[Rfam]
Nucleotides: 376
Stems, first nucleotide, its partner, number of pairs: 040057007061210005071203001074200004086189003090186003096112005113171007211226004216237003221233002342357004348373006
Number, partner (000 for none) and nucleotide at each position: 001000c002000c003000c004000c005000u006000u007000u008000c009000c010000a011000u012000a013000c014000g015000c016000u017000u018000c019000u020000g021000a022000a023000a024000a025000c026000a027000c028000u029000a030000u031000a032000u033000c034000a035000g036000c037000a038000c039000u040057g041056u042055c043054g044053g045052u046051u047000u048000u049000c050000g051046g052045a053044c054043c055042g056041g057040c058000u059000a060000u061210g062209g063208c064207g065206a066000u067000a068000a069000a070000u071203g072000a073000g074200c075199g076198g077197u078000g079000u080000a081000a082000u083000a084000a085000a086189c087188c088187u089000a090186u091185u092184g093000g094000a095000c096112c097111c098110g099109g100108g101000g102000g103000c104000g105000g106000u107000a108100c109099c110098c111097g112096g113171c114170g115169c116168c117167u118166c119165c120000a121000c122000c123000a124000a125000a126000a127000a128000c129000a130000g131000g132000c133000g134000g135000u136000c137000g138000a139000u140000c141000u142000u143000c144000g145000u146000g147000g148000u149000c150000u151000g152000g153000c154000c155000u156000g157000c158000u159000u160000u161000u162000g163000a164000u165119g166118g167117g168116g169115g170114c171113g172000a173000a174000a175000u176000a177000g178000g179000a180000u181000c182000g183000a184092c185091a186090a187088g188087g189086g190000u191000g192000u193000a194000a195000a196000g197077a198076u199075c200074g201000a202000c203071u204000u205000u206065u207064u208063g209062c210061u211226c212225g213224g214223c215000a216237u217236g218235a219000u220000a221233c222232c223214g224213c225212c226211g227000u228000u229000a230000u231000c232222g233221g234000g235218u236217c237216a238000a239000a240000a241000g242000u243000g244000u245000a246000g247000u248000u249000g250000c251000a252000a253000a254000c255000g256000a257000c258000a259000a260000c261000a262000a263000c264000g265000c266000u267000a268000a269000g270000g271000a272000a273000u274000a275000c276000g277000c278000u279000c280000u281000c282000g283000c284000u285000g286000c287000c288000u289000a290000a291000u292000g293000g294000c295000g296000g297000u298000g299000c300000g301000g302000g303000a304000a305000u306000u307000c308000c309000g310000c311000u312000c313000u314000a315000a316000g317000u318000c319000c320000u321000u322000g323000c324000g325000g326000u327000u328000a329000g330000c331000a332000c333000c334000g335000a336000a337000a338000g339000g340000c341000g342357g343356g344355g345354u346000c347000c348373g349372a350371a351370g352369g353368c354345a355344c356343c357342u358000g359000g360000c361000a362000a363000c364000a365000g366000a367000a368353g369352c370351c371350u372349u373348c374000a375000c376000c
Rfam assigns this 376-nucleotide RNA from Rhizobium sp. P32RR-XVIII to the family "Alphaproteobacteria transfer-messenger RNA". From the family's description: Bacterial tmRNA, also known as 10Sa RNA or SsrA, is named for its dual tRNA and mRNA-like properties. Its role is to liberate the mRNA from a stalled ribosome. To accomplish this part of the tmRNA is used as a reading frame that ends in a translation stop signal. The organism belongs to Rhizobium, within Bacteria. It is annotated as a non-coding RNA gene. Clan: tRNA clan.